This 141-nucleotide RNA sequence from Microcebus murinus belongs to the Rfam family "U4 spliceosomal RNA". The family's consensus secondary structure is taken from published work. The organism belongs to Microcebus, within Eukaryota.

RNA sequence: AGCUUUGCAUAGUGGCAGUGUCGUACCCAAUGAGGUUUAUCUGAGGCGCGAUUAUUGCUAAUUGAAAACUUUUCCCAAUACUCCACCAUGACGACUUGAAAUAUGGUUGGCAUUGGCAAUUUUUAAUUCUCCCUAUGGGGA
Numbered sequence: 001a002g003c004u005u006u007g008c009a010u011a012g013u014g015g016c017a018g019u020g021u022c023g024u025a026c027c028c029a030a031u032g033a034g035g036u037u038u039a040u041c042u043g044a045g046g047c048g049c050g051a052u053u054a055u056u057g058c059u060a061a062u063u064g065a066a067a068a069c070u071u072u073u074c075c076c077a078a079u080a081c082u083c084c085a086c087c088a089u090g091a092c093g094a095c096u097u098g099a100a101a102u103a104u105g106g107u108u109g110g111c112a113u114u115g116g117c118a119a120u121u122u123u124u125a126a127u128u129c130u131c132c133c134u135a136u137g138g139g140g141a
Base pairs, nucleotide, nucleotide: 020052021051022050023049024048027046028045034042035041086116087115088113089112090111092109093108094107095106096105130141131140132139133138